[Rfam]
RNA: c-di-GMP-I riboswitch aptamer
Organism: Ammoniphilus sp. CFH 90114
RNA sequence: GUACGAUAAUGGCAAAACCUCUGAAAAGGGGUGACGCAAAGCUAUAGGGGCUUCAUCGGAGAAACUUCCGAUAUGCUAGCCAGCUACCGAA
Numbered sequence: 001g002u003a004c005g006a007u008a009a010u011g012g013c014a015a016a017a018c019c020u021c022u023g024a025a026a027a028g029g030g031g032u033g034a035c036g037c038a039a040a041g042c043u044a045u046a047g048g049g050g051c052u053u054c055a056u057c058g059g060a061g062a063a064a065c066u067u068c069c070g071a072u073a074u075g076c077u078a079g080c081c082a083g084c085u086a087c088c089g090a091a
Stems, first nucleotide, its partner, number of pairs: 012037002017032006040085004047081002049077003056071006